[Rfam]
RNA sequence: CCCUUAUCAAGAGAGGCGGAGGGAACAGACCCUGUGAUGCCCGGCAACCUGCGGUUUGCAAGGUGCCAAUUUCUGCGGGAAAACCGGAAGAUGAGGU
Numbered sequence: 001c002c003c004u005u006a007u008c009a010a011g012a013g014a015g016g017c018g019g020a021g022g023g024a025a026c027a028g029a030c031c032c033u034g035u036g037a038u039g040c041c042c043g044g045c046a047a048c049c050u051g052c053g054g055u056u057u058g059c060a061a062g063g064u065g066c067c068a069a070u071u072u073c074u075g076c077g078g079g080a081a082a083a084c085c086g087g088a089a090g091a092u093g094a095g096g097u
Stems, first nucleotide, its partner, number of pairs: 002096007013042001015041003021032003026075004043067004048063002050060003071089001076086003
SAM riboswitch aptamer (S box leader): a 97-nucleotide sequence from [Clostridium] leptum. Taxonomically the source falls in [Clostridium] leptum (Bacteria, Bacillati, Bacillota, Clostridia).